[Rfam]
RNA sequence: CCCUUAUCAAGAGUGGCGGAGGGACAGGCCCUGCGAUGCCCGGCAACCUGCAUUUUAGCAAGGUGCCAAAUCCUGCGGGAAACCGAGAGAUGAGGA
Number, nucleotide and partner (000 for none) at each position: 001c000002c095003c094004u093005u092006a091007u090008c089009a000010a000011g000012a000013g041014u000015g040016g039017c038018g000019g000020a000021g031022g030023g029024a000025c075026a074027g073028g072029c023030c022031c021032u000033g000034c000035g000036a000037u000038g017039c016040c015041c013042g067043g066044c065045a064046a000047c063048c062049u060050g059051c058052a000053u000054u000055u000056u000057a000058g051059c050060a049061a000062g048063g047064u045065g044066c043067c042068a000069a000070a000071u088072c028073c027074u026075g025076c085077g084078g083079g000080a000081a000082a000083c078084c077085g076086a000087g000088a071089g008090a007091u006092g005093a004094g003095g002096a000

Overview: This 96-nucleotide RNA sequence from Hydrogenoanaerobacterium saccharovorans belongs to the Rfam family "SAM riboswitch aptamer (S box leader)". The base pairs follow the family's consensus structure, which is taken from published work.